[Rfam]
RNA sequence: AGAGAGCGCAGCCGACCGCGGCAGGAGCGGGGAAACCGAGUAAGUGCCGCGACCGCACGUCUUUUUGGCGGUCCGGCUUGGGGUGAAGCCUUGUCUCCGGGUGCCCUGGCGCACCGGGGAAAGGCCGGGCUGCUCCGGCCCGAAUCCGACAGCUAACUCCGCAGGCGUGGGAGAGGACUC
Numbered sequence: 001a002g003a004g005a006g007c008g009c010a011g012c013c014g015a016c017c018g019c020g021g022c023a024g025g026a027g028c029g030g031g032g033a034a035a036c037c038g039a040g041u042a043a044g045u046g047c048c049g050c051g052a053c054c055g056c057a058c059g060u061c062u063u064u065u066u067g068g069c070g071g072u073c074c075g076g077c078u079u080g081g082g083g084u085g086a087a088g089c090c091u092u093g094u095c096u097c098c099g100g101g102u103g104c105c106c107u108g109g110c111g112c113a114c115c116g117g118g119g120a121a122a123g124g125c126c127g128g129g130c131u132g133c134u135c136c137g138g139c140c141c142g143a144a145u146c147c148g149a150c151a152g153c154u155a156a157c158u159c160c161g162c163a164g165g166c167g168u169g170g171g172a173g174a175g176g177a178c179u180c
Stems, first nucleotide, its partner, number of pairs: 011166003019024001027162006037080005081147003089124004127141004
Rfam assigns this 180-nucleotide RNA from Streptomyces taklimakanensis to the family "c-di-AMP riboswitch aptamer (ydaO/yuaA leader)". This family represents a conserved RNA structure found upstream of the ydaO and yuaA genes in Bacillus subtilis and related genes in other bacteria. The organism belongs to Streptomyces, within Bacteria. Rfam 15.1 lists 7,607 matches to the family in 2,262 species. A search with the family's covariance model found it, with a score of 50 bits.